[Rfam]
RNA sequence: UGGCCAGUGAUGAACUGUGAGUUGUACUGAUACUCUGAGUUAAAUGAAGUGCAUUUGACACAUGCGCGUCUUUGAGGCCU
Dot-bracket structure: .((((......................................................................)))).

Shown here is an 80-nucleotide sequence from Oryza rufipogon, a member of the family "Small nucleolar RNA Z163/Z177 family". The pairing is the family consensus, mapped onto this sequence. For this family Rfam cites "The high diversity of snoRNAs in plants: identification and comparative study of 120 snoRNA genes from Oryza sativa" (Chen et al., Nucleic Acids Res, 2003). A search with the family's covariance model found it, with a score of 50 bits.